[Rfam]
RNA sequence: GAGAAUAUGAUGAUCCUUUCCCCAGAUGAUCGACAAUGAACAUACUGAGCGCUAUUAUUUCUCCUUUGAGAACCAAGCCAGUAUUCUGAUUCUC
Dot-bracket structure: (((((....................................................................................)))))
Numbered sequence: 001g002a003g004a005a006u007a008u009g010a011u012g013a014u015c016c017u018u019u020c021c022c023c024a025g026a027u028g029a030u031c032g033a034c035a036a037u038g039a040a041c042a043u044a045c046u047g048a049g050c051g052c053u054a055u056u057a058u059u060u061c062u063c064c065u066u067u068g069a070g071a072a073c074c075a076a077g078c079c080a081g082u083a084u085u086c087u088g089a090u091u092c093u094c
Stems, first nucleotide, its partner, number of pairs: 001094005